[Rfam]
Annotation: Shown here is a 74-nucleotide RNA from Pomatostomus ruficeps, a member of the family "mir-10 microRNA precursor family".
RNA sequence: CUAUAUGUACCCUGUAGAUCCGAAUUUGUGUAGAGCAGCCGGGUCACAAAUUCGCGUCUAGGGGAAUAUGUAGU
Number, nucleotide and partner (000 for none) at each position: 001c000002u072003a071004u070005a069006u068007g067008u000009a000010c064011c063012c062013u000014g000015u000016a059017g058018a057019u056020c000021c054022g053023a052024a051025u050026u049027u048028g047029u046030g045031u000032a000033g000034a000035g000036c000037a000038g000039c000040c000041g000042g000043g000044u000045c030046a029047c028048a027049a026050a025051u024052u023053c022054g021055c000056g019057u018058c017059u016060a000061g000062g012063g011064g010065a000066a000067u007068a006069u005070g004071u003072a002073g000074u000